[Rfam]
RNA sequence: UUGGCGGAUAGGAACCAGUUCUUGUUUGUGCUUGAAUUGGGCCGAAAACCGCCGAAAUCAAUUUGUACGCACUUUUGGUCGUAUGUGUUAGUGUUUAAAACAUGUAUAUCACCAUUGCGCACGACAGCU
Number, nucleotide and partner (000 for none) at each position: 001u000002u000003g053004g052005c051006g050007g049008a000009u000010a000011g043012g042013a000014a000015c040016c039017a038018g037019u036020u035021c034022u000023u000024g031025u030026u000027u000028g000029u000030g025031c024032u000033u000034g021035a020036a019037u018038u017039g016040g015041g000042c012043c011044g000045a000046a000047a000048a000049c007050c006051g005052c004053c003054g000055a000056a000057a000058u000059c000060a000061a000062u000063u000064u000065g122066u121067a000068c119069g118070c117071a116072c000073u000074u000075u000076u000077g113078g112079u111080c000081g107082u106083a000084u104085g103086u102087g101088u100089u000090a000091g000092u098093g000094u000095u000096u000097a000098a092099a000100a088101c087102a086103u085104g084105u000106a082107u081108a000109u000110c000111a079112c078113c077114a000115u000116u071117g070118c069119g068120c000121a066122c065123g000124a000125c000126a000127g000128c000129u000